[Rfam]
RNA sequence: ACGCAAGAAAGGAGGUGGUCCAGAAGUGCAUUCUUUUAGGACUCGCGAGGUGUUCGCCCGCUAGGGCGACCCGUACUCGGAUCGCCCCUGGCGAAUCCACGGUGGACACCCAGACCCCCGGGUGGCCGGCCUUGUCCAGCCGGCCCCGUCGUACGACGGAAGUCACGCCCGGGGGUCCGUCCUGC
Numbered sequence: 001a002c003g004c005a006a007g008a009a010a011g012g013a014g015g016u017g018g019u020c021c022a023g024a025a026g027u028g029c030a031u032u033c034u035u036u037u038a039g040g041a042c043u044c045g046c047g048a049g050g051u052g053u054u055c056g057c058c059c060g061c062u063a064g065g066g067c068g069a070c071c072c073g074u075a076c077u078c079g080g081a082u083c084g085c086c087c088c089u090g091g092c093g094a095a096u097c098c099a100c101g102g103u104g105g106a107c108a109c110c111c112a113g114a115c116c117c118c119c120g121g122g123u124g125g126c127c128g129g130c131c132u133u134g135u136c137c138a139g140c141c142g143g144c145c146c147c148g149u150c151g152u153a154c155g156a157c158g159g160a161a162g163u164c165a166c167g168c169c170c171g172g173g174g175g176u177c178c179g180u181c182c183u184g185c
Stems, first nucleotide, its partner, number of pairs: 014058005059093007066085004071080003111179001113177011125144006
Record summary:
The family of this 185-nucleotide RNA from Spinactinospora alkalitolerans is "Actinobacteria sRNA Ms_IGR-5". Pairs were carried over by alignment from the consensus structure.